[Rfam]
RNA sequence: CGGCAAACUGUCUAGGGUUCCGUUGGCGGCGGCGGGGAGGCGCGAGUAAGCGUCGCAAGCGGCUGCGCAGUCAAGUCUGGUCCAAGAGAUAGUGUACGGGAGGCGCUGCGGCGGCAUUCGGCGAAGCCCGUAUAACACGGAAGGAUAAAAGCCUGGGAGAU
Number, nucleotide and partner (000 for none) at each position: 001c000002g000003g000004c000005a000006a000007a093008c092009u091010g090011u089012c088013u000014a000015g083016g082017g000018u000019u000020c080021c079022g077023u074024u073025g072026g071027c070028g000029g000030c000031g000032g000033c000034g000035g000036g000037g000038a000039g000040g000041c000042g000043c000044g000045a000046g000047u000048a000049a000050g000051c000052g000053u000054c000055g000056c000057a000058a000059g000060c000061g000062g000063c000064u000065g000066c000067g000068c000069a000070g027071u026072c025073a024074a023075g000076u000077c022078u000079g021080g020081u000082c016083c015084a000085a000086g000087a000088g012089a011090u010091a009092g008093u007094g133095u132096a131097c130098g129099g128100g127101a000102g000103g000104c000105g000106c000107u000108g000109c000110g000111g000112c000113g000114g000115c000116a000117u000118u000119c000120g000121g000122c000123g000124a000125a000126g000127c100128c099129c098130g097131u096132a095133u094134a000135a000136c156137a000138c159139g000140g000141a000142a154143g153144g152145a000146u000147a000148a000149a000150a000151g000152c144153c143154u142155g000156g136157g000158a000159g138160a000161u000
Shown here is a 161-nucleotide RNA from Paenibacillus piri, a member of the family "Guanidine-I riboswitch aptamer". The family has 100 seed sequences and 1,509 matches in Rfam 15.1. The literature on the family includes a 2017 paper in Structure by Reiss et al., "Structural Basis for Ligand Binding to the Guanidine-I Riboswitch". The match comes from Rfam's covariance-model search (67 bits). NCBI's taxonomy places the organism under Bacteria, Bacillota, Bacilli, Paenibacillaceae, Paenibacillus.